[Rfam]
Shown here is a 242-nucleotide sequence from Pseudoflavonifractor capillosus, a member of the family "T-box leader". NCBI's taxonomy places the organism under Bacteria, Bacillati, Clostridia, Eubacteriales, Pseudoflavonifractor capillosus.

RNA sequence: GCCAUCGCGAUGAUGAGGAGAAGUACCCGGUCUGCCGCCAUUCAGAGAGCCCCCGUUUUGGUGCGAGGGGGAGGGCGGCUCUGGUGAAAUACACCUCGGAGCAGCCGCCUGAACGCAAAAUGCUAUUAGGGCUGUGUCGGGUGCGCCCGUUACCGCGCCGGAGUGUGUUGGCACUCCAUGAGGCCGUCUCUGUGAGGAGACGGUGAACCAGAGGUGGUACCGCGUAGUAUUACGCCCUCUGU
Numbered sequence: 001g002c003c004a005u006c007g008c009g010a011u012g013a014u015g016a017g018g019a020g021a022a023g024u025a026c027c028c029g030g031u032c033u034g035c036c037g038c039c040a041u042u043c044a045g046a047g048a049g050c051c052c053c054c055g056u057u058u059u060g061g062u063g064c065g066a067g068g069g070g071g072a073g074g075g076c077g078g079c080u081c082u083g084g085u086g087a088a089a090u091a092c093a094c095c096u097c098g099g100a101g102c103a104g105c106c107g108c109c110u111g112a113a114c115g116c117a118a119a120a121u122g123c124u125a126u127u128a129g130g131g132c133u134g135u136g137u138c139g140g141g142u143g144c145g146c147c148c149g150u151u152a153c154c155g156c157g158c159c160g161g162a163g164u165g166u167g168u169u170g171g172c173a174c175u176c177c178a179u180g181a182g183g184c185c186g187u188c189u190c191u192g193u194g195a196g197g198a199g200a201c202g203g204u205g206a207a208c209c210a211g212a213g214g215u216g217g218u219a220c221c222g223c224g225u226a227g228u229a230u231u232a233c234g235c236c237c238u239c240u241g242u
Base pairs, nucleotide, nucleotide: 007102008101015097016096017095018094027084028083029082030081038075039074050071051070052069053068054067105136107132108131109130110129138149139148140147183204184203185202186201187200188199189198211239212238213237214236222235223234224233225232226231